Nucleotides: 440
Base pairs, nucleotide, nucleotide: 001436002435003434004433005432006431007430008429009428010427011425012391013390014389015388016387017386018385020064021063022062023061024060027057028056029055030054031053069423070422071421073420074419075418076417077416078258079257080256081255087326088325089324091254092253093252094251095250096110097109098108099107100106111125112123113122114121115120126249127248131247132246133243134242135241148189149188150185151184152183153182154181155180156179158177197215198214199213200212201211202210216238217236218235219234220233222231223230224229262348263347264346265345272339273338274337275336276335277334318332319331320330321329322328355374356373357372358371359370360369361368362367
Number, partner (000 for none) and nucleotide at each position: 001436c002435c003434a004433g005432a006431c007430g008429g009428c010427c011425g012391g013390a014389c015388g016387g017386u018385c019000g020064c021063u022062g023061c024060c025000g026000c027057g028056c029055c030054u031053g032000a033000g034000c035000u036000g037000c038000c039000c040000g041000c042000a043000a044000g045000g046000g047000u048000c049000g050000c051000g052000c053031c054030a055029g056028g057027c058000a059000a060024g061023g062022u063021g064020g065000a066000g067000g068000a069423a070422a071421g072000u073420c074419c075418g076417g077416g078258c079257u080256c081255c082000a083000c084000g085000a086000a087326g088325g089324a090000a091254c092253g093252g094251u095250g096110c097109c098108g099107g100106u101000u102000a103000a104000c105000g106100a107099c108098c109097g110096g111125c112123g113122g114121g115120g116000g117000c118000g119000a120115c121114c122113c123112c124000a125111g126249g127248g128000a129000a130000a131247g132246u133243g134242c135241c136000a137000c138000a139000g140000a141000a142000a143000a144000c145000a146000a147000a148189c149188c150185g151184c152183c153182u154181g155180c156179a157000c158177g159000c160000c161000c162000g163000g164000g165000c166000a167000a168000c169000c170000g171000g172000a173000c174000c175000c176000g177158c178000c179156u180155g181154c182153a183152g184151g185150c186000a187000a188149g189148g190000g191000u192000g193000a194000a195000a196000c197215g198214g199213u200212g201211c202210g203000g204000c205000a206000a207000g208000a209000g210202c211201g212200c213199a214198c215197c216238g217236c218235g219234c220233u221000u222231c223230c224229g225000g226000c227000a228000a229224c230223g231222g232000c233220g234219g235218c236217g237000g238216c239000a240000g241135g242134g243133c244000a245000a246132a247131c248127c249126c250095c251094a252093c253092c254091g255081g256080g257079a258078g259000c260000a261000a262348g263347a264346c265345c266000g267000a268000a269000u270000a271000g272339g273338g274337g275336c276335g277334g278000c279000a280000g281000g282000g283000c284000g285000g286000g287000u288000u289000c290000g291000c292000g293000a294000c295000c296000u297000u298000c299000g300000g301000g302000a303000a304000g305000c306000g307000g308000g309000c310000c311000a312000c313000g314000u315000c316000c317000g318332g319331a320330g321329g322328u323000c324089u325088u326087u327000c328322g329321c330320c331319u332318c333000g334277c335276c336275g337274c338273c339272c340000g341000g342000g343000u344000u345265g346264g347263u348262c349000g350000c351000g352000c353000g354000a355374g356373g357372c358371a359370c360369g361368c362367a363000g364000c365000g366000a367362u368361g369360c370359g371358u372357g373356u374355c375000c376000c377000a378000g379000a380000g381000g382000a383000a384000u385018g386017a387016c388015c389014g390013u391012c392000u393000c394000g395000u396000g397000c398000c399000g400000c401000a402000a403000g404000g405000c406000a407000c408000g409000g410000a411000c412000a413000g414000a415000a416077c417076c418075c419074g420073g421071c422070u423069u424000a425011c426000a427010g428009g429008c430007c431006g432005u433004c434003u435002g436001g437000c438000a439000c440000c
The record is a 440-nucleotide RNA sequence from Lichenicoccus roseus, which matches "Bacterial RNase P class A" in Rfam. It is annotated as a ribozyme. The organism belongs to Lichenicoccus, within Bacteria. Ribonuclease P (RNase P) is a ubiquitous endoribonuclease, found in archaea, bacteria and eukarya as well as chloroplasts and mitochondria.